[Rfam]
RNA: SAM (S-adenosyl methionine) riboswitch aptamer
Organism: Arthrobacter sp. ERGS1:01
RNA sequence: CUUCAAGAGAUGCGGCGCCAAGCUCCGACUGGCCGCACGCCAACCCCAUGUUCGCAGGGUGGCUCGGAUGAGGAAGUGACCAGCGGUGACUGGAUCCGCGGGUAAGAGCACUCC
Numbered sequence: 001c002u003u004c005a006a007g008a009g010a011u012g013c014g015g016c017g018c019c020a021a022g023c024u025c026c027g028a029c030u031g032g033c034c035g036c037a038c039g040c041c042a043a044c045c046c047c048a049u050g051u052u053c054g055c056a057g058g059g060u061g062g063c064u065c066g067g068a069u070g071a072g073g074a075a076g077u078g079a080c081c082a083g084c085g086g087u088g089a090c091u092g093g094a095u096c097c098g099c100g101g102g103u104a105a106g107a108g109c110a111c112u113c114c
Stems, first nucleotide, its partner, number of pairs: 001076004009038001011037006021030002039063003044059003049056001079103003083099004